RNA sequence: ACACAAGAGAGGAGGUGGUCUGAAGAAUGUAUGUUCAACGGAUGCGUGAGGUGGCUGCCCGCUAGCAGCACACCCUGCGGGAUUUCCCCAGCGGUGCGCUGAGCGCGAAUCCCAAGCAGUCACCCGACCCCCGAGCCCCCGGCAGAUCCAACCGGGACCGUCACGUUCCCUGGAACGCGACGAUAUGGCUCGGGGGUCGCUCCAU
Numbered sequence: 001a002c003a004c005a006a007g008a009g010a011g012g013a014g015g016u017g018g019u020c021u022g023a024a025g026a027a028u029g030u031a032u033g034u035u036c037a038a039c040g041g042a043u044g045c046g047u048g049a050g051g052u053g054g055c056u057g058c059c060c061g062c063u064a065g066c067a068g069c070a071c072a073c074c075c076u077g078c079g080g081g082a083u084u085u086c087c088c089c090a091g092c093g094g095u096g097c098g099c100u101g102a103g104c105g106c107g108a109a110u111c112c113c114a115a116g117c118a119g120u121c122a123c124c125c126g127a128c129c130c131c132c133g134a135g136c137c138c139c140c141g142g143c144a145g146a147u148c149c150a151a152c153c154g155g156g157a158c159c160g161u162c163a164c165g166u167u168c169c170c171u172g173g174a175a176c177g178c179g180a181c182g183a184u185a186u187g188g189c190u191c192g193g194g195g196g197u198c199g200c201u202c203c204a205u
Stems, first nucleotide, its partner, number of pairs: 014059006060107003063101004068097004075091003125199013138156005

Rfam assigns this 205-nucleotide RNA from Nocardia mangyaensis to the family "Actinobacteria sRNA Ms_IGR-5". NCBI's taxonomy places the organism under Bacteria, Bacillati, Actinomycetes, Nocardiaceae, Nocardia. The base pairs follow the family's consensus structure.